[Rfam]
RNA sequence: CGGGGAAAGAAGACCCUGUUGAGCUUGACUCUAGUUUGACAUUGUGAAAGAACUUAGAGGGUGUAGCAUAAGUGGGAGCUUCGGCGAUCUUGAAAUACCACUACCUUUAUUGUUUUUUUACUUAUUCAAUAAUGUGGAAUUGGACUUCACGGUCCACUUUCUAGCGUUAAGGUUCUUUACGAACUGAUCCAGUUUGAAGACAUUGUCAGGUGGGGAGUUUGGCUGGGGCGGCACAUCUGUUAAAAAAUAACGCAGGUGUCCUAAGGGGAACUCAUGGAGAACAGAAAUCUCCAGUAGAACAAAAGGGUAAAAGUUCCCUUGAUUUUGAUUUUCAGUGUGAAUACAAACCAUGAAAGUGUGGCCUAUCGAUCCUUUAGAUCCUGGAAAUUUCAGGCUAGAGGUGUCAGAAAAGUUACCACAGGGAUAACUGGCUUGUGGCAGCCAAGCGUUCAUAGCGACGUUGCUUUUUGAUCCUUCGAUGUCGGCUCUUCCUAUCAUUAAGAAGCAGAAUUCUUAAAGUGUUGGAUUGUUCACCCACUAAUAGGGAACGUGAGCUGGGUUUAGACCGUCGUGAGACAGGUUAGUUUUACCCUA
Dot-bracket structure: ..(((.((......((((.(((((((.((((...(((((((..((((((((((.((((((..........(((((..((....))............))))).))))))..))))))))))...(((((.....((((....((((....))))................(((((.....)))))..))))..))))).....)))))))....))))..((((.....))).)((((((...........))))))..((....((((((((.((((((.......))))))...))((......))....))))))....(((..((((.......))))..))).(((....))).))..........((((((..((((.......)))))))))).........)))))..))))))........(.(.(.((((((...((.......))...))))))...)).)..........(((((((((((..((.((((((......))))))...)).(((.(.....).))).....)))))..)..)))).).....(((((((....))).))))....))..))).
Eukaryotic large subunit ribosomal RNA: a 594-nucleotide part of an RNA from Neocallimastix californiae. NCBI's taxonomy places the organism under Eukaryota, Fungi, chytridiomyceta, Neocallimastigomycota, Neocallimastix. It scores 3349 bits against the family's covariance model.